[Rfam]
RNA: Makes More Granules Regulator RNA (mmgR)
RNA sequence: UCCUGCAGCCCUUCUUGGGCGUUUCCUCCCUAGACUUCGGGCCGUCCUUCGGGGCGGCCUUUUUUCUUUUUGGC
Number, nucleotide and partner (000 for none) at each position: 001u000002c000003c000004u000005g000006c000007a000008g020009c019010c018011c017012u000013u000014c000015u000016u000017g011018g010019g009020c008021g000022u000023u000024u000025c000026c000027u000028c000029c000030c000031u000032a000033g000034a000035c000036u000037u000038c000039g000040g059041g058042c057043c056044g055045u054046c053047c052048u000049u000050c000051g000052g047053g046054g045055c044056g043057g042058c041059c040060u000061u000062u000063u000064u000065u000066c000067u000068u000069u000070u000071u000072g000073g000074c000